[Rfam]
RNA sequence: CUGACCACGACGGGAGAAUCCGGUGCCCUUGACGGGGCCGGUGCCGAAGGCGCAACCGCCCCGGAAACGCUCAGGCAAAAGGACCGAUGUGGUGCA
Numbered sequence: 001c002u003g004a005c006c007a008c009g010a011c012g013g014g015a016g017a018a019u020c021c022g023g024u025g026c027c028c029u030u031g032a033c034g035g036g037g038c039c040g041g042u043g044c045c046g047a048a049g050g051c052g053c054a055a056c057c058g059c060c061c062c063g064g065a066a067a068c069g070c071u072c073a074g075g076c077a078a079a080a081g082g083a084c085c086g087a088u089g090u091g092g093u094g095c096a
Stems, first nucleotide, its partner, number of pairs: 006091004011086003020041004043076003046072002050070003056064002